[Rfam]
RNA: Small nucleolar RNA SNORA47
RNA sequence: UGGAGGACUGAGAAGGUGAGGCAGUCUCAUACCAUACUGCUUUCUACUGGUUAAGACCUCCAACAGCGAAGGGUUGCCCAGGCAGAGGAUGUCCCUCUGCCAACUUCGGAGGGGCAGCACUGUGCUGGCCGACAUUUG
Numbered sequence: 001u002g003g004a005g006g007a008c009u010g011a012g013a014a015g016g017u018g019a020g021g022c023a024g025u026c027u028c029a030u031a032c033c034a035u036a037c038u039g040c041u042u043u044c045u046a047c048u049g050g051u052u053a054a055g056a057c058c059u060c061c062a063a064c065a066g067c068g069a070a071g072g073g074u075u076g077c078c079c080a081g082g083c084a085g086a087g088g089a090u091g092u093c094c095c096u097c098u099g100c101c102a103a104c105u106u107c108g109g110a111g112g113g114g115c116a117g118c119a120c121u122g123u124g125c126u127g128g129c130c131g132a133c134a135u136u137u138g
Base pairs, nucleotide, nucleotide: 002061003060004059005058006057015048016047017046018045019042020041021040022039023038024037025036081130082129083128086126087125089123090122091121097117098116099115100114101113104111